[Rfam]
RNA sequence: AUAGGAGAAGCUGAAAACCUUUAUAGAGUAGGCA
Numbered sequence: 001a002u003a004g005g006a007g008a009a010g011c012u013g014a015a016a017a018c019c020u021u022u023a024u025a026g027a028g029u030a031g032g033c034a
Stems, first nucleotide, its partner, number of pairs: 003020003010033003
The family of this 34-nucleotide sequence is "DUF805b RNA".